The family of this 118-nucleotide sequence from Ureibacillus endophyticus is "PyrR binding site". On this family, see Bonner et al., Nucleic Acids Res 2001: "Molecular recognition of pyr mRNA by the Bacillus subtilis attenuation regulatory protein PyrR". It is annotated as a cis-regulatory element. The family's consensus secondary structure is taken from published work. The organism belongs to Ureibacillus, within Bacteria. This family represents the PyrR binding site and terminator structure. This RNA structure is found upstream of a variety of genes involved in pyrimidine biosynthesis and transport. The alignment also includes a portion of the antiterminator structure. Rfam 15.1 lists 1,498 matches to the family in 930 species.
RNA sequence: AUAACCUUUUAAAAGUUGUCCAGAGAGGCAAAAAAGGGGAAAUAUGACAGCCGUACGUUGACGUACUAAUUUUGUCAUACCUCCUAGAGCCUCGUGAUAGUCACGAGGCAUUUUUCAU
Number, nucleotide and partner (000 for none) at each position: 001a000002u000003a000004a000005c037006c036007u035008u034009u033010u000011a000012a000013a000014a000015g000016u031017u030018g029019u028020c027021c000022a000023g000024a000025g000026a000027g020028g019029c018030a017031a016032a000033a009034a008035a007036g006037g005038g000039g000040a000041a000042a000043u000044a075045u074046g073047a072048c000049a070050g000051c000052c000053g066054u065055a064056c063057g062058u000059u000060g000061a000062c057063g056064u055065a054066c053067u000068a000069a000070u049071u000072u047073u046074g045075u044076c000077a000078u000079a000080c000081c000082u000083c000084c000085u000086a112087g111088a000089g109090c108091c107092u106093c105094g104095u103096g102097a101098u000099a000100g000101u097102c096103a095104c094105g093106a092107g091108g090109c089110a000111u087112u086113u000114u000115u000116c000117a000118u000